The family of this 145-nucleotide RNA from Gossypium raimondii is "MIR7502 microRNA precursor family". Gene Ontology terms of the family: RISC complex and miRNA-mediated post-transcriptional gene silencing.
RNA sequence: UGUUAAAAAAAUAAUCCAUUUUUGUUGUUAAAAACUAGUCUCUAUAUAUCAACAUGAGAUAUGUGUGGCAUGCGAUGUGUCAUUAUCUAAUUAUUUUGUUAGCCACCCCAGUUUUUAACAGUAGAGAUGAAUGAAGGUUUUAAUA
Number, nucleotide and partner (000 for none) at each position: 001u000002g144003u143004u142005a141006a140007a139008a138009a000010a000011a000012u134013a000014a132015u131016c000017c000018a128019u127020u126021u125022u124023u123024g122025u121026u120027g000028u118029u117030a116031a115032a114033a113034a112035c111036u000037a000038g000039u000040c000041u000042c000043u000044a000045u000046a000047u000048a000049u000050c000051a000052a000053c000054a000055u000056g000057a000058g000059a000060u000061a000062u000063g000064u000065g000066u000067g000068g000069c000070a000071u000072g000073c000074g000075a000076u000077g000078u000079g000080u000081c000082a000083u000084u000085a000086u000087c000088u000089a000090a000091u000092u000093a000094u000095u000096u000097u000098g000099u000100u000101a000102g000103c000104c000105a000106c000107c000108c000109c000110a000111g035112u034113u033114u032115u031116u030117a029118a028119c000120a026121g025122u024123a023124g022125a021126g020127a019128u018129g000130a000131a015132u014133g000134a012135a000136g000137g000138u008139u007140u006141u005142a004143a003144u002145a000